This 107-nucleotide RNA from Setaria italica belongs to the Rfam family "Small nucleolar RNA snoR97". The family's consensus secondary structure was predicted with WAR. It scores 54 bits against the family's covariance model.
[Rfam]
RNA sequence: UGUUCAUCUGCAGCAAGGAUCUUCCAAAGCUCACAAAGUCAGUGCUGUCAUCACCUUUGUUUCUGCUUCAACAUCAGAGAUCAGAGUUGAAAAACAGCACAACAUUU
Numbered sequence: 001u002g003u004u005c006a007u008c009u010g011c012a013g014c015a016a017g018g019a020u021c022u023u024c025c026a027a028a029g030c031u032c033a034c035a036a037a038g039u040c041a042g043u044g045c046u047g048u049c050a051u052c053a054c055c056u057u058u059g060u061u062u063c064u065g066c067u068u069c070a071a072c073a074u075c076a077g078a079g080a081u082c083a084g085a086g087u088u089g090a091a092a093a094a095c096a097g098c099a100c101a102a103c104a105u106u107u
Stems, first nucleotide, its partner, number of pairs: 042100006053088001055086004060080004
Dot-bracket structure: .........................................((((((.....(.((((.((((.............))))..)))).)......)))))).......
Gene Ontology terms of the family: nucleolus and RNA processing. By type it is an H/ACA-box small nucleolar RNA.